[Rfam]
RNA sequence: CAAGUUAGAAUGGUGUUAAAAUAUUCCCAAUAGGACAAGGGAGAAAUAACCCUUACAGAAUAUGAAAUUUAUCUUCAUCAGAUUCAUAUUCUGACCGAAGUU
Numbered sequence: 001c002a003a004g005u006u007a008g009a010a011u012g013g014u015g016u017u018a019a020a021a022u023a024u025u026c027c028c029a030a031u032a033g034g035a036c037a038a039g040g041g042a043g044a045a046a047u048a049a050c051c052c053u054u055a056c057a058g059a060a061u062a063u064g065a066a067a068u069u070u071a072u073c074u075u076c077a078u079c080a081g082a083u084u085c086a087u088a089u090u091c092u093g094a095c096c097g098a099a100g101u102u
Stems, first nucleotide, its partner, number of pairs: 004031003008027001010024003037054005056093010067083004
Record summary:
A member of the RNA family "Methylobacterium-1 RNA", 102 nucleotides long. Pairs were carried over by alignment from the consensus structure, which is taken from published work. The sequence is in the family's curated seed alignment. The family's RNA type in Rfam is small RNA.